[Rfam]
RNA sequence: GCAUGGCUGAAUUCUGUUUUACUCUGUCUGUAGUAAAUUCAGUCAGACACCAUGCAAGAUUACCCUACUCUCACUCUUUCUGUUUUAGUGGUAUCUUAAUUUAUGUUACCACUGACAUGAGGGAGAGUAUACAAAC
Numbered sequence: 001g002c003a004u005g006g007c008u009g010a011a012u013u014c015u016g017u018u019u020u021a022c023u024c025u026g027u028c029u030g031u032a033g034u035a036a037a038u039u040c041a042g043u044c045a046g047a048c049a050c051c052a053u054g055c056a057a058g059a060u061u062a063c064c065c066u067a068c069u070c071u072c073a074c075u076c077u078u079u080c081u082g083u084u085u086u087a088g089u090g091g092u093a094u095c096u097u098a099a100u101u102u103a104u105g106u107u108a109c110c111a112c113u114g115a116c117a118u119g120a121g122g123g124a125g126a127g128u129a130u131a132c133a134a135a136c
Stems, first nucleotide, its partner, number of pairs: 001055006014042003019037001066129007074121002081119003085115009
Source information
A member of the RNA family "Small nucleolar RNA SNORA15" from Astyanax mexicanus, 136 nucleotides long. Rfam classes the family as an H/ACA-box small nucleolar RNA. It scores 75 bits against the family's covariance model. About the family: ACA15 is a member of the H/ACA class of snoRNA that guide the sites of modification of uridines to pseudouridines.